[Rfam]
This 143-nucleotide RNA from Amborella trichopoda belongs to the Rfam family "small nucleolar RNA snoR135". Rfam 15.1 lists 837 matches to the family in 220 species. The base pairs follow the family's consensus structure, which was predicted with RNAalifold. Gene Ontology terms of the family: RNA processing and nucleolus. It scores 99 bits against the family's covariance model.
Nucleotides: 143
Base pairs, nucleotide, nucleotide: 004066005065006064007063008062010060015044016043017042018041019040020039080137081136082135083134085132086131087130088129089128090127094124095123096122097121
Number, partner (000 for none) and nucleotide at each position: 001000g002000a003000a004066g005065c006064a007063g008062g009000u010060a011000u012000u013000g014000u015044g016043u017042g018041u019040a020039u021000c022000g023000g024000c025000u026000u027000u028000g029000u030000g031000c032000c033000u034000u035000u036000u037000a038000a039020a040019u041018g042017c043016a044015u045000u046000g047000a048000u049000g050000c051000c052000g053000a054000a055000a056000g057000u058000a059000u060010u061000u062008c063007c064006u065005g066004c067000a068000a069000c070000a071000u072000u073000g074000a075000u076000u077000c078000a079000u080137g081136g082135g083134g084000c085132g086131a087130a088129u089128g090127g091000g092000c093000a094124g095123u096122c097121g098000g099000g100000u101000c102000u103000c104000u105000g106000u107000u108000g109000u110000c111000a112000u113000c114000a115000g116000g117000g118000c119000c120000u121097u122096g123095a124094c125000a126000a127090u128089c129088a130087u131086u132085u133000u134083c135082c136081c137080u138000a139000c140000a141000u142000u143000u